[Rfam]
RNA sequence: UGGAAGAAUCUGUAAAGCUCAGGAGGGAUAGCGCCAGCCAUCUCAAGGUGUUUUAUUUCUCGAAAUAACAUCUGUGUAUGGCGCUAUCUAUCCUGAGUUUCAUGGGUUCUUCCU
Numbered sequence: 001u002g003g004a005a006g007a008a009u010c011u012g013u014a015a016a017g018c019u020c021a022g023g024a025g026g027g028a029u030a031g032c033g034c035c036a037g038c039c040a041u042c043u044c045a046a047g048g049u050g051u052u053u054u055a056u057u058u059c060u061c062g063a064a065a066u067a068a069c070a071u072c073u074g075u076g077u078a079u080g081g082c083g084c085u086a087u088c089u090a091u092c093c094u095g096a097g098u099u100u101c102a103u104g105g106g107u108u109c110u111u112c113c114u
Stems, first nucleotide, its partner, number of pairs: 010105001016099009026089010
Shown here is a 114-nucleotide RNA sequence from Hibiscus syriacus, a member of the family "MIR390 microRNA precursor family". Rfam links the family to the GO terms miRNA-mediated post-transcriptional gene silencing and RISC complex. The source organism's lineage runs through Eukaryota, Viridiplantae, rosids, Malvaceae and Hibiscus.